[Rfam]
RNA sequence: GCAAAUUUCUAUCGUUUCCUACGGAAAGCUAAAACCGGUGGAUCUGGGUCAUGAUGAAAAUGCUUAUGCAAAAAAUCGCCGUGCGGUUUUGGUUUAUUAAGAGUGUGGUAUGAAUCUUGACUUCAAAUGUUAUUUGCUA
Numbered sequence: 001g002c003a004a005a006u007u008u009c010u011a012u013c014g015u016u017u018c019c020u021a022c023g024g025a026a027a028g029c030u031a032a033a034a035c036c037g038g039u040g041g042a043u044c045u046g047g048g049u050c051a052u053g054a055u056g057a058a059a060a061u062g063c064u065u066a067u068g069c070a071a072a073a074a075a076u077c078g079c080c081g082u083g084c085g086g087u088u089u090u091g092g093u094u095u096a097u098u099a100a101g102a103g104u105g106u107g108g109u110a111u112g113a114a115u116c117u118u119g120a121c122u123u124c125a126a127a128u129g130u131u132a133u134u135u136g137c138u139a
Stems, first nucleotide, its partner, number of pairs: 002046002007041002014035004054138001057135003062130002065127001067125002075118001078115001080112005086106002089103002